[Rfam]
Nucleotides: 114
Base pairs, nucleotide, nucleotide: 002113003112004111005110006109007108009106010105011104012103015100017098018097019096020095021094022093023092024091025090027088028087029086030085031084032083033082034081035080037078038077039076040075041074042073043072044071049066050065051064052063
Number, partner (000 for none) and nucleotide at each position: 001000u002113u003112a004111u005110a006109a007108g008000c009106a010105a011104a012103a013000a014000c015100u016000u017098a018097c019096u020095u021094u022093u023092u024091a025090g026000a027088u028087u029086c030085a031084u032083u033082g034081a035080a036000a037078a038077a039076g040075u041074g042073a043072u044071g045000u046000a047000u048000c049066u050065g051064g052063c053000c054000u055000a056000u057000a058000u059000u060000a061000u062000a063052g064051c065050c066049a067000g068000a069000u070000a071044c072043a073042u074041c075040a076039c077038u078037u079000a080035u081034u082033c083032a084031a085030u086029g087028a088027a089000u090025c091024u092023a093022a094021a095020a096019a097018g098017u099000u100015g101000a102000c103012u104011u105010u106009u107000g108007c109006u110005u111004a112003u113002a114000a